[Rfam]
RNA sequence: GUGCACUGAUAGAGAAUAUCAUUGAGCCAAUCCUUAACAGAAAAUGCCGUGUAGACCAAAUGAUAGGACUGAGCAC
Numbered sequence: 001g002u003g004c005a006c007u008g009a010u011a012g013a014g015a016a017u018a019u020c021a022u023u024g025a026g027c028c029a030a031u032c033c034u035u036a037a038c039a040g041a042a043a044a045u046g047c048c049g050u051g052u053a054g055a056c057c058a059a060a061u062g063a064u065a066g067g068a069c070u071g072a073g074c075a076c
Stems, first nucleotide, its partner, number of pairs: 001076004